[Rfam]
Nucleotides: 066
Stems, first nucleotide, its partner, number of pairs: 001066007009058004014049001016047001019045003023041003026032001
Number, partner (000 for none) and nucleotide at each position: 001066c002065g003064u004063g005062g006061a007060g008000a009058a010057g011056g012055u013000c014049g015000a016047u017000u018000u019045g020044g021043c022000u023041g024040g025039u026032g027000u028000g029000g030000u031000u032026c033000a034000g035000a036000g037000a038000a039025g040024c041023c042000c043021g044020c045019u046000u047016g048000c049014u050000g051000a052000c053000a054000u055012g056011c057010u058009u059000a060007u061006u062005c063004c064003a065002u066001g
MAT2A 3'UTR stem loop F: a 66-nucleotide RNA from Pteropus vampyrus. NCBI's taxonomy places the organism under Eukaryota, Metazoa, Teleostomi, Tetrapoda, Pteropus. The match comes from Rfam's covariance-model search (64 bits).